Rfam assigns this 117-nucleotide RNA sequence from Pseudidiomarina planktonica to the family "Ribosomal S15 leader". Its Rfam clan is "Ribosomal Protein S15 Leader clan". The match comes from Rfam's covariance-model search (92 bits). Rfam links the family to the GO term regulation of translation, ncRNA-mediated. The family's consensus secondary structure is taken from published work. About the family: The E. coli Ribosomal S15 gene 5' UTR can form two alternative structures. One that is a series of three hairpins, The other includes a pseudoknot. The source organism's lineage runs through Bacteria, Pseudomonadati, Alteromonadales, Idiomarinaceae and Pseudidiomarina. A reference for the family is Benard et al. (1996), "Pseudoknot and translational control in the expression of the S15 ribosomal protein", Biochimie.
RNA sequence: CUGUAUUGCUGAAUUAGUGAUCGGCAAUACUUAAUUUACUUAUAUUUUUAGGAGUUAUACAUGUCACUAACUGCAGAAGUUAAAGCUGAAAUCGUUAAGAAAUAUGGUCAGGGCGAG
Numbered sequence: 001c002u003g004u005a006u007u008g009c010u011g012a013a014u015u016a017g018u019g020a021u022c023g024g025c026a027a028u029a030c031u032u033a034a035u036u037u038a039c040u041u042a043u044a045u046u047u048u049u050a051g052g053a054g055u056u057a058u059a060c061a062u063g064u065c066a067c068u069a070a071c072u073g074c075a076g077a078a079g080u081u082a083a084a085g086c087u088g089a090a091a092u093c094g095u096u097a098a099g100a101a102a103u104a105u106g107g108u109c110a111g112g113g114c115g116a117g
Stems, first nucleotide, its partner, number of pairs: 007026006048070002051068002054065001
Dot-bracket structure: ......((((((........)))))).....................((.((.(..........).))))...............................................